Overview:
The record is a 94-nucleotide RNA sequence from Otolemur garnettii, which matches "mir-802 microRNA precursor family" in Rfam. A reference for the family is Takada et al. (2006), "Mouse microRNA profiles determined with a new and sensitive cloning method", Nucleic Acids Res. A search with the family's covariance model found it, with a score of 97 bits. Gene Ontology terms of the family: miRNA-mediated post-transcriptional gene silencing and RISC complex. Lineage of the source: Eukaryota > Vertebrata > Theria > Strepsirrhini > Otolemur.

RNA sequence: UGUCUAUUAUUUGCAGUCAGUAACAAAGAUUCAUCCUUGUGUCCAUCGUGCAACCAGGAGAAUCUUUGUCACUCAGUGUGAUUAAUAGCCGGAC
Numbered sequence: 001u002g003u004c005u006a007u008u009a010u011u012u013g014c015a016g017u018c019a020g021u022a023a024c025a026a027a028g029a030u031u032c033a034u035c036c037u038u039g040u041g042u043c044c045a046u047c048g049u050g051c052a053a054c055c056a057g058g059a060g061a062a063u064c065u066u067u068g069u070c071a072c073u074c075a076g077u078g079u080g081a082u083u084a085a086u087a088g089c090c091g092g093a094c
Stems, first nucleotide, its partner, number of pairs: 004088006011081005017075001019073003023069010034059004039054002041051002
Dot-bracket structure: ...((((((.(((((.(.(((.((((((((((.((((.((((.......)).)).)))))))))))))).))).).))))).))))))......